[Rfam]
RNA sequence: GAUCGUUGGAUGAGUGUGAGGCGUUGGAUCGAUUUCAUUCAAUUUGAGCCCCACAUUCAUCAGAGGUUCGU
Number, nucleotide and partner (000 for none) at each position: 001g000002a000003u000004c066005g000006u064007u063008g000009g061010a060011u059012g058013a057014g056015u055016g054017u053018g052019a000020g050021g049022c048023g000024u047025u046026g045027g044028a043029u042030c000031g040032a039033u000034u000035u000036c000037a000038u000039u032040c031041a000042a029043u028044u027045u026046g025047a024048g022049c021050c020051c000052c018053a017054c016055a015056u014057u013058c012059a011060u010061c009062a000063g007064a006065g000066g004067u000068u000069c000070g000071u000